Rfam assigns this 72-nucleotide sequence from Streptomyces genisteinicus to the family "ASpks TB sRNA".
[Rfam]
Nucleotides: 072
Base pairs, nucleotide, nucleotide: 014026015025016024017023031068032067033066035062042055044053046051
Number, partner (000 for none) and nucleotide at each position: 001000c002000u003000u004000g005000a006000u007000c008000g009000a010000g011000c012000c013000g014026a015025g016024c017023c018000a019000c020000a021000g022000c023017g024016g025015c026014u027000c028000g029000u030000u031068c032067g033066c034000a035062c036000g037000g038000u039000c040000g041000c042055u043000g044053c045000c046051g047000u048000a049000g050000g051046u052000c053044g054000c055042g056000a057000g058000g059000a060000g061000g062035g063000c064000c065000u066033g067032c068031g069000c070000c071000u072000c
Rfam classes the family as an antisense RNA. On this family, see Arnvig and Young, Mol Microbiol 2009: "Identification of small RNAs in Mycobacterium tuberculosis". Lineage of the source: Bacteria > Bacillati > Actinomycetota > Streptomycetaceae > Streptomyces.